RNA sequence: AGCUGAGGCACAUGGUGGUCUUCUCCUCCCGGUAUCCACCGCCGAAGCUGUUCCCCUCUGGAGGUUUUGACCUUCACACCUAGAUGGCCCCAACAGAACCGUUGCGGGCCUCUUUU
Numbered sequence: 001a002g003c004u005g006a007g008g009c010a011c012a013u014g015g016u017g018g019u020c021u022u023c024u025c026c027u028c029c030c031g032g033u034a035u036c037c038a039c040c041g042c043c044g045a046a047g048c049u050g051u052u053c054c055c056c057u058c059u060g061g062a063g064g065u066u067u068u069g070a071c072c073u074u075c076a077c078a079c080c081u082a083g084a085u086g087g088c089c090c091c092a093a094c095a096g097a098a099c100c101g102u103u104g105c106g107g108g109c110c111u112c113u114u115u116u
Stems, first nucleotide, its partner, number of pairs: 001049004007043003015039004059076007086110005091104004
Dot-bracket structure: ((((..(((.....((((.................)))).)))..)))).........(((((((....))))))).........(((((((((......)))).)))))......